About this RNA: The family of this 101-nucleotide RNA from Maritimibacter fusiformis is "TPP riboswitch aptamer (THI element)". The family's consensus secondary structure is taken from published work. The match comes from Rfam's covariance-model search (71 bits).
[Rfam]
RNA sequence: ACAGUCACCUCGGGGUGCCGCAUGCGCGGCUGAGAUGCACCAGCAAACCCGUUGAACCUGAACCGGUUAGGACCGGCGGAGGGAAGGUCAGGAUCAUCCUA
Numbered sequence: 001a002c003a004g005u006c007a008c009c010u011c012g013g014g015g016u017g018c019c020g021c022a023u024g025c026g027c028g029g030c031u032g033a034g035a036u037g038c039a040c041c042a043g044c045a046a047a048c049c050c051g052u053u054g055a056a057c058c059u060g061a062a063c064c065g066g067u068u069a070g071g072a073c074c075g076g077c078g079g080a081g082g083g084a085a086g087g088u089c090a091g092g093a094u095c096a097u098c099c100u101a
Stems, first nucleotide, its partner, number of pairs: 007088004011051004016045001017030005037044002057082003063076004